The record is a 249-nucleotide RNA sequence from Streptomyces sp. TLI_185, which matches "Streptomyces sRNA 4677" in Rfam. On this family, see Hindra et al., PLoS One 2014: "Complex intra-operonic dynamics mediated by a small RNA in Streptomyces coelicolor". The match comes from Rfam's covariance-model search (225 bits). About the family: Located in the intergenic region between anti-sigma factor SCO4677 gene and a putative regulatory protein gene SCO4676. scr4677 expression requires the SCO4677 activity and scr4677 sRNA itself seem to affect the levels of the SCO4676-associated transcripts.

RNA sequence: UGCUGCGGUGCGACGGGUGCUCUUUUCCAAGGAACUCCACGGUGAAAGAACCCCACCAAGCCCCACCCCUCCCGCCCGCGGCGCGCACUCACCCUCGCGAGUGAACAACGCCAACUCAGCUGGAUUUCGGCCCGGUUGCCUGCCCUACGCUCAGCGCGACACAGCACAGCGGCAGACAUGCGACGGCCCCCGCCGGGACUGCAAUCCCAGUGCGGGGGCCUGACCACCGAGGAAGGUAAGGACUUCCCG
Numbered sequence: 001u002g003c004u005g006c007g008g009u010g011c012g013a014c015g016g017g018u019g020c021u022c023u024u025u026u027c028c029a030a031g032g033a034a035c036u037c038c039a040c041g042g043u044g045a046a047a048g049a050a051c052c053c054c055a056c057c058a059a060g061c062c063c064c065a066c067c068c069c070u071c072c073c074g075c076c077c078g079c080g081g082c083g084c085g086c087a088c089u090c091a092c093c094c095u096c097g098c099g100a101g102u103g104a105a106c107a108a109c110g111c112c113a114a115c116u117c118a119g120c121u122g123g124a125u126u127u128c129g130g131c132c133c134g135g136u137u138g139c140c141u142g143c144c145c146u147a148c149g150c151u152c153a154g155c156g157c158g159a160c161a162c163a164g165c166a167c168a169g170c171g172g173c174a175g176a177c178a179u180g181c182g183a184c185g186g187c188c189c190c191c192g193c194c195g196g197g198a199c200u201g202c203a204a205u206c207c208c209a210g211u212g213c214g215g216g217g218g219c220c221u222g223a224c225c226a227c228c229g230a231g232g233a234a235g236g237u238a239a240g241g242a243c244u245u246c247c248c249g
Stems, first nucleotide, its partner, number of pairs: 007228004016076004089104004094099001119155005185220005191214003195208004231247005

The pairing is the family consensus, mapped onto this sequence.